[Rfam]
RNA sequence: UCUGUCUUGCUUCAACAGUGUUUGGACAGAAUGA
Numbered sequence: 001u002c003u004g005u006c007u008u009g010c011u012u013c014a015a016c017a018g019u020g021u022u023u024g025g026a027c028a029g030a031a032u033g034a
Stems, first nucleotide, its partner, number of pairs: 001034002003031001005030003009027001011026005016020001
RNA: Iron response element I